[Rfam]
RNA sequence: ACAAUGGAGAGUUUGAUCCUGGCUCAGGAUGAACGCUAGCGGCAGGCCUAAUACAUGCAAGUCGAACGGGAUUCCAGUGUAGCUUGCUAUACUGGAUGAGAGUGGCGUACGGGUGCGUAACGCGUGAGCAACCUACCCAUAUCAGGGGGAUAGCCCGGAGAAAUCCGGAUUAACACCGCAUAAUAUUACUGAAUGGCAUCAUUUAGUGAUCAAAUAUUUAUAGGAUAUGGAUGGGCUCGCGUGACAUUAGCUAGUUGGUAAGGUAACGGCUUACCAAGGCUACGAUGUCUAGGGGCUCUGAGAGGAGAAUCCCCCACACUGGUACUGAGACACGGACCAGACUCCUACGGGAGGCAGCAGUAAGGAAUAUUGGUCAAUGGAGGGAACUCUGAACCAGCCAUGCCGCGUGCAGGAUGACUGCCCUACGGGUUGUAAACUGCUUUUAUCUAGGAAUAACCCUUGGUACGUGUACCGAGCUGAAUGUACUAGAAGAAUAAGGAUCGGCUAACUCCGUGCCAGCAGCCGCGGUAAUACGGAGGAUCCGAGCGUUAUCCGGAUUUAUUG
Numbered sequence: 001a002c003a004a005u006g007g008a009g010a011g012u013u014u015g016a017u018c019c020u021g022g023c024u025c026a027g028g029a030u031g032a033a034c035g036c037u038a039g040c041g042g043c044a045g046g047c048c049u050a051a052u053a054c055a056u057g058c059a060a061g062u063c064g065a066a067c068g069g070g071a072u073u074c075c076a077g078u079g080u081a082g083c084u085u086g087c088u089a090u091a092c093u094g095g096a097u098g099a100g101a102g103u104g105g106c107g108u109a110c111g112g113g114u115g116c117g118u119a120a121c122g123c124g125u126g127a128g129c130a131a132c133c134u135a136c137c138c139a140u141a142u143c144a145g146g147g148g149g150a151u152a153g154c155c156c157g158g159a160g161a162a163a164u165c166c167g168g169a170u171u172a173a174c175a176c177c178g179c180a181u182a183a184u185a186u187u188a189c190u191g192a193a194u195g196g197c198a199u200c201a202u203u204u205a206g207u208g209a210u211c212a213a214a215u216a217u218u219u220a221u222a223g224g225a226u227a228u229g230g231a232u233g234g235g236c237u238c239g240c241g242u243g244a245c246a247u248u249a250g251c252u253a254g255u256u257g258g259u260a261a262g263g264u265a266a267c268g269g270c271u272u273a274c275c276a277a278g279g280c281u282a283c284g285a286u287g288u289c290u291a292g293g294g295g296c297u298c299u300g301a302g303a304g305g306a307g308a309a310u311c312c313c314c315c316a317c318a319c320u321g322g323u324a325c326u327g328a329g330a331c332a333c334g335g336a337c338c339a340g341a342c343u344c345c346u347a348c349g350g351g352a353g354g355c356a357g358c359a360g361u362a363a364g365g366a367a368u369a370u371u372g373g374u375c376a377a378u379g380g381a382g383g384g385a386a387c388u389c390u391g392a393a394c395c396a397g398c399c400a401u402g403c404c405g406c407g408u409g410c411a412g413g414a415u416g417a418c419u420g421c422c423c424u425a426c427g428g429g430u431u432g433u434a435a436a437c438u439g440c441u442u443u444u445a446u447c448u449a450g451g452a453a454u455a456a457c458c459c460u461u462g463g464u465a466c467g468u469g470u471a472c473c474g475a476g477c478u479g480a481a482u483g484u485a486c487u488a489g490a491a492g493a494a495u496a497a498g499g500a501u502c503g504g505c506u507a508a509c510u511c512c513g514u515g516c517c518a519g520c521a522g523c524c525g526c527g528g529u530a531a532u533a534c535g536g537a538g539g540a541u542c543c544g545a546g547c548g549u550u551a552u553c554c555g556g557a558u559u560u561a562u563u564g
Stems, first nucleotide, its partner, number of pairs: 009025005027554004032550006039406006045399002047364001052362003056359003061106003066103002076093007113317003122242008132234002137230007145179001147177002153170001155168005185210007193202003215222002243289003250280003255277008292314004296307004319340005342353004370396001372395003378391005409440004420430003446490005454481001460475003498543005509538005519526002
Bacterial small subunit ribosomal RNA: a 564-nucleotide part of an RNA from Sphingobacterium sp. JB170. A search with the family's covariance model found it, with a score of 1516 bits. The family's consensus secondary structure is taken from published work.